[Rfam]
RNA sequence: AACCAGCCUAUCCCGACGGGGAGAAAAGCGGCGUCAUUAACCGCCUGGCUGGUUAUCCAUUUUUUAAUG
Number, nucleotide and partner (000 for none) at each position: 001a054002a053003c052004c051005a050006g049007c048008c047009u000010a000011u022012c021013c020014c019015g000016a000017c000018g000019g014020g013021g012022a011023g000024a000025a000026a000027a000028g044029c043030g042031g041032c000033g000034u000035c069036a068037u067038u066039a065040a064041c031042c030043g029044c028045c000046u000047g008048g007049c006050u005051g004052g003053u002054u001055a000056u000057c000058c000059a000060u000061u000062u000063u000064u040065u039066a038067a037068u036069g035
About this RNA: A member of the RNA family "int-alpA RNA" from an Ignavibacteriales bacterium, 69 nucleotides long. Acidobacteria (1 example), Planctomycetes (1 example), Proteobacteria. Rfam 15.1 lists 577 matches to the family in 491 species. Rfam classes the family as a small RNA. The base pairs follow the family's consensus structure, which is taken from published work.